[Rfam]
RNA: Small nucleolar RNA Z161/Z228
Organism: Jatropha curcas
RNA sequence: AAAGCAAGUGAUGAAAUUGGAUUUAAAUUUCUCACGACGGUCGUCUGAGAGACACGUCAAGUGUCGCCGCUGAUGCAAUGAUCCAAUAUUCUGAUGUUU
Numbered sequence: 001a002a003a004g005c006a007a008g009u010g011a012u013g014a015a016a017u018u019g020g021a022u023u024u025a026a027a028u029u030u031c032u033c034a035c036g037a038c039g040g041u042c043g044u045c046u047g048a049g050a051g052a053c054a055c056g057u058c059a060a061g062u063g064u065c066g067c068c069g070c071u072g073a074u075g076c077a078a079u080g081a082u083c084c085a086a087u088a089u090u091c092u093g094a095u096g097u098u099u
Stems, first nucleotide, its partner, number of pairs: 001099003051065005